A member of the RNA family "c-di-GMP-I riboswitch aptamer" from Paenibacillus sp. GP183, 94 nucleotides long. Rfam 15.1 lists 5,092 matches to the family in 1,772 species. Gene Ontology term of the family: cyclic-di-GMP binding. Rfam describes the family as follows. GEMM was predicted in a large-scale screen for bacterial structured RNA regulatory elements.

RNA sequence: GUACGAUAAGGGCAAAACCAUUGAAAAAUGGUGACGCAAAGCUAUAGGGGCUAAUUUGGGUAAUCAUACACCAAAAUGCCAGCCAGCUGCCGAA
Number, nucleotide and partner (000 for none) at each position: 001g000002u000003a000004c000005g000006a000007u000008a000009a000010g000011g000012g037013c036014a000015a000016a000017a032018c031019c030020a029021u028022u027023g000024a000025a000026a000027a022028a021029u020030g019031g018032u017033g000034a000035c000036g013037c012038a000039a000040a088041g087042c086043u085044a000045u000046a000047g084048g083049g080050g079051c078052u000053a000054a000055u000056u074057u073058g072059g071060g000061u000062a000063a000064u000065c000066a000067u000068a000069c000070a000071c059072c058073a057074a056075a000076a000077u000078g051079c050080c049081a000082g000083c048084c047085a043086g042087c041088u040089g000090c000091c000092g000093a000094a000